[Rfam]
RNA: mir-3156 microRNA precursor family
RNA sequence: UGCAGAAGAAAGAUCUGGAAGUGGGAGACACUUUCACUAUAUAUAGUGGCUCCCACUUCCAGAUCUUUCUCUCUGUA
Numbered sequence: 001u002g003c004a005g006a007a008g009a010a011a012g013a014u015c016u017g018g019a020a021g022u023g024g025g026a027g028a029c030a031c032u033u034u035c036a037c038u039a040u041a042u043a044u045a046g047u048g049g050c051u052c053c054c055a056c057u058u059c060c061a062g063a064u065c066u067u068u069c070u071c072u073c074u075g076u077a
Stems, first nucleotide, its partner, number of pairs: 002076005007070021029048004
Dot-bracket structure: .((((((((((((((((((((((((((.((((............)))).))))))))))))))))))))).))))).